[Rfam]
A member of the RNA family "Small nucleolar RNA SNORA49" from Phocoena sinus, 128 nucleotides long. Rfam describes the family as follows. The snoRNA ACA49 has no identified RNA target. NB genomic sequence 1-nt different from published. The family's consensus secondary structure was predicted with RNAalifold.

RNA sequence: CUCCCUCAGCCUUACUCCAGGGACUUUCGCUGUAAAGUGCCUGGCAUUGCUGGAGAGUACAUGAACGAGUACGCAUCCUUCCCCAGGGAGACUGCUGUCCUGUGGGACCUACACGUGGAGCUGACAGC
Numbered sequence: 001c002u003c004c005c006u007c008a009g010c011c012u013u014a015c016u017c018c019a020g021g022g023a024c025u026u027u028c029g030c031u032g033u034a035a036a037g038u039g040c041c042u043g044g045c046a047u048u049g050c051u052g053g054a055g056a057g058u059a060c061a062u063g064a065a066c067g068a069g070u071a072c073g074c075a076u077c078c079u080u081c082c083c084c085a086g087g088g089a090g091a092c093u094g095c096u097g098u099c100c101u102g103u104g105g106g107a108c109c110u111a112c113a114c115g116u117g118g119a120g121c122u123g124a125c126a127g128c
Stems, first nucleotide, its partner, number of pairs: 003057001005055003009051001011049001017044004022040001023038005068122003072118001082106004088101001090099002
Dot-bracket structure: ..(.(((.(.(.....((((.((((((......))))).)))))....).).))).)..........(((.(.........((((..(.((......)).).))))...........).)))......
It scores 93 bits against the family's covariance model.